The record is a 110-nucleotide sequence from Mesorhizobium sp. YM1C-6-2, which matches "Rhizobiales sRNA Atu_At1" in Rfam.
The organism belongs to Mesorhizobium, within Bacteria.
The family's RNA type in Rfam is small RNA.
The match comes from Rfam's covariance-model search (82 bits).
[Rfam]
RNA sequence: CUGCGAGUCGUGUCAACCGCGCGUGGCGGUACGGUGAACAGGAAGUCUUUUUCCCGGUUUCUCUUCCUGGCCAACGAAAGGGCAGACGAGCACCUCGUCCCGUCCGACCU
Numbered sequence: 001c002u003g004c005g006a007g008u009c010g011u012g013u014c015a016a017c018c019g020c021g022c023g024u025g026g027c028g029g030u031a032c033g034g035u036g037a038a039c040a041g042g043a044a045g046u047c048u049u050u051u052u053c054c055c056g057g058u059u060u061c062u063c064u065u066c067c068u069g070g071c072c073a074a075c076g077a078a079a080g081g082g083c084a085g086a087c088g089a090g091c092a093c094c095u096c097g098u099c100c101c102g103u104c105c106g107a108c109c110u
Base pairs, nucleotide, nucleotide: 007108008107009106011023012022013021025104026103027102028101029100033094034093035092036091039069040068041067042066043065044064045063070083071082072081